A member of the RNA family "int-alpA RNA" from Thiothrix nivea, 69 nucleotides long. The match comes from Rfam's covariance-model search (56 bits).

RNA sequence: CCGGCAUCUACUCCGACGGGAGGAAAAGCGGACUCUUCAACCGCCUGAUGCUGGGUUCUUAUUUGAGGG
Numbered sequence: 001c002c003g004g005c006a007u008c009u010a011c012u013c014c015g016a017c018g019g020g021a022g023g024a025a026a027a028g029c030g031g032a033c034u035c036u037u038c039a040a041c042c043g044c045c046u047g048a049u050g051c052u053g054g055g056u057u058c059u060u061a062u063u064u065g066a067g068g069g
Base pairs, nucleotide, nucleotide: 001054002053003052004051005050006049007048008047011022012021013020014019028044029043030042031041035069036068037067040064